[Rfam]
RNA sequence: UAAUUGUUAUAUGACUGACGGAAAAGUGGAAAAACCACAUGAAGUAUAACGUUUACAAUGCCGACCGUCUGGGCGAGAUAA
Number, nucleotide and partner (000 for none) at each position: 001u000002a000003a053004u000005u051006g050007u049008u048009a047010u046011a045012u044013g000014a000015c041016u000017g069018a068019c067020g066021g065022a000023a000024a000025a000026g038027u037028g036029g035030a000031a000032a000033a000034a000035c029036c028037a027038c026039a000040u000041g015042a000043a000044g012045u011046a010047u009048a008049a007050c006051g005052u000053u003054u000055a000056c000057a000058a000059u075060g074061c073062c072063g000064a000065c021066c020067g019068u018069c017070u000071g000072g062073g061074c060075g059076a000077g000078a000079u000080a000081a000
RNA: ZMP/ZTP riboswitch aptamer (pfl RNA motif)